[Rfam]
Nucleotides: 125
Stems, first nucleotide, its partner, number of pairs: 001008001013044006049124001051097005056091001057085002060082003064078001066076002102121006
Number, partner (000 for none) and nucleotide at each position: 001008g002000a003000g004000a005000g006000g007000c008001c009000c010000u011000u012000c013044g014043a015042u016041g017040g018039u019000c020000c021000c022000g023000a024000a025000g026000c027000u028000u029000c030000g031000g032000g033000g034000g035000a036000g037000c038000a039018g040017c041016c042015a043014u044013c045000a046000a047000a048000c049124u050000g051097c052096c053095u054094u055093a056091c057085g058084c059000u060082g061081c062080a063000u064078c065000u066076g067075g068000c069000g070000g071000a072000a073000a074000c075067u076066c077000c078064g079000g080062u081061g082060u083000g084058g085057u086000u087000a088000a089000c090000g091056g092000u093055u094054a095053a096052g097051g098000a099000a100000a101000a102121a103120c104119g105118g106117g107116g108000a109000c110000a111000a112000a113000g114000a115000u116107c117106c118105c119104u120103g121102u122000a123000g124049g125000u

Rfam assigns this 125-nucleotide RNA from Aquiflexum balticum to the family "Group II catalytic intron D1-D4-2". Rfam links the family to the GO term Group II intron splicing. On this family, see Bonen and Vogel, Trends Genet 2001: "The ins and outs of group II introns". About the family: Group II introns are found in rRNA, tRNA and mRNA of organelles in fungi, plants and protists, and also in mRNA in bacteria.